[Rfam]
RNA sequence: CGGCCGGGACGACCCGGCCGCAAGCAUGCACACGCGGGGACGGCCCUG
Numbered sequence: 001c002g003g004c005c006g007g008g009a010c011g012a013c014c015c016g017g018c019c020g021c022a023a024g025c026a027u028g029c030a031c032a033c034g035c036g037g038g039g040a041c042g043g044c045c046c047u048g
Stems, first nucleotide, its partner, number of pairs: 001020008035048005